[Rfam]
RNA: Lacto-usp RNA
Organism: Enterococcus faecalis
RNA sequence: CAUGAGUUUACAAAGUGGUCGAGCCUUGAUUAAAAAACUAUUGUUAUACGUGCGUUUUGUGAAAACAUAUGAGAUAAUGUUCA
Dot-bracket structure: ....................((((.(((...........((.(((...((((.....))))..)))..))....))).)))).